Shown here is a 75-nucleotide RNA from Cottoperca gobio, a member of the family "mir-192/215 microRNA precursor family". Gene Ontology terms of the family: miRNA-mediated post-transcriptional gene silencing and RISC complex. This family represents the human microRNA (miRNA) precursors mir-192 and mir-215. The organism belongs to Cottoperca, within Eukaryota.

[Rfam]
RNA sequence: ACAAAGUGAUGACCUAUGAAUUGACAGCCAAUGAUGAUAACAUUUGCCUGUCAGUUCUGUAGGCCACUGCUGUGU
Numbered sequence: 001a002c003a004a005a006g007u008g009a010u011g012a013c014c015u016a017u018g019a020a021u022u023g024a025c026a027g028c029c030a031a032u033g034a035u036g037a038u039a040a041c042a043u044u045u046g047c048c049u050g051u052c053a054g055u056u057c058u059g060u061a062g063g064c065c066a067c068u069g070c071u072g073u074g075u
Stems, first nucleotide, its partner, number of pairs: 001075003005071004010066002013063004018057010029046003